A member of the RNA family "TPP riboswitch aptamer (THI element)" from Tolumonas auensis, 93 nucleotides long. The family's consensus secondary structure is taken from published work. Lineage of the source: Bacteria > Gammaproteobacteria > Aeromonadaceae > Tolumonas > Tolumonas auensis.

RNA sequence: UAACCGUGACCGGGGUGCUGCCUGGCAGCUGAGAAAUACCCGUUGCACCUGAUCUGGAUCAUGCCAGCGUAGGGAGUUCACGACGGGUAUCUC
Numbered sequence: 001u002a003a004c005c006g007u008g009a010c011c012g013g014g015g016u017g018c019u020g021c022c023u024g025g026c027a028g029c030u031g032a033g034a035a036a037u038a039c040c041c042g043u044u045g046c047a048c049c050u051g052a053u054c055u056g057g058a059u060c061a062u063g064c065c066a067g068c069g070u071a072g073g074g075a076g077u078u079c080a081c082g083a084c085g086g087g088u089a090u091c092u093c
Stems, first nucleotide, its partner, number of pairs: 006081004011042004016036001017029005048073004054067004